[Rfam]
RNA sequence: AACCACACUAUCAAUAAAUGGAUUCGUCUAUGAGAUAACAUGGUUGUUCCACCUAGGAUAAAGACGUGGCAUCCUAUUAAUUUCAUGCGAUGGCUGGUAAUAGGAUGCCACGUCCUAUCCUAGGUGUAACAACCACGUCAUAUCACAGAUGCAUCCAUUCAUUGAUAGUGUGGUU
Number, nucleotide and partner (000 for none) at each position: 001a175002a174003c173004c172005a171006c170007a169008c000009u167010a166011u165012c164013a163014a162015u161016a000017a159018a158019u157020g000021g155022a154023u153024u000025c151026g150027u149028c148029u000030a000031u145032g144033a143034g000035a141036u140037a000038a138039c137040a000041u135042g134043g133044u132045u131046g130047u129048u128049c000050c000051a125052c124053c000054u122055a121056g000057g119058a118059u000060a000061a000062a000063g114064a113065c112066g000067u000068g000069g108070c107071a106072u105073c104074c103075u102076a101077u100078u099079a098080a000081u000082u000083u000084c000085a000086u097087g000088c000089g000090a000091u000092g000093g000094c000095u000096g000097g086098u079099a078100a077101u076102a075103g074104g073105a072106u071107g070108c069109c000110a000111c000112g065113u064114c063115c000116u000117a000118u058119c057120c000121u055122a054123g000124g052125u051126g000127u000128a048129a047130c046131a045132a044133c043134c042135a041136c000137g039138u038139c000140a036141u035142a000143u033144c032145a031146c000147a000148g028149a027150u026151g025152c000153a023154u022155c021156c000157a019158u018159u017160c000161a015162u014163u013164g012165a011166u010167a009168g000169u007170g006171u005172g004173g003174u002175u001
RNA: MIR807 microRNA precursor family